[Rfam]
Annotation
A member of the RNA family "Plastid-psbl-rps4 3UTR RNA" from Phoenix dactylifera, 53 nucleotides long. Rfam 15.1 lists 1,631 matches to the family in 422 species. Plastid psbl-rps4-psbC is a non-coding RNA (ncRNA) present in plastids. It is compose of two short stem-loops in tandem in the terminal 3 prime untranslate region (3UTR) mostly in psbl and rps4 seed plants genes. The family's RNA type in Rfam is cis-regulatory element. The organism belongs to Phoenix, within Eukaryota.
RNA sequence: UGGAGAGAGAGGGAUUCGAACCCUCGAUACGAAUAACUCGUACAACGAGUUAG
Numbered sequence: 001u002g003g004a005g006a007g008a009g010a011g012g013g014a015u016u017c018g019a020a021c022c023c024u025c026g027a028u029a030c031g032a033a034u035a036a037c038u039c040g041u042a043c044a045a046c047g048a049g050u051u052a053g
Base pairs, nucleotide, nucleotide: 009025010024011023012022013021028042029041030040031039032038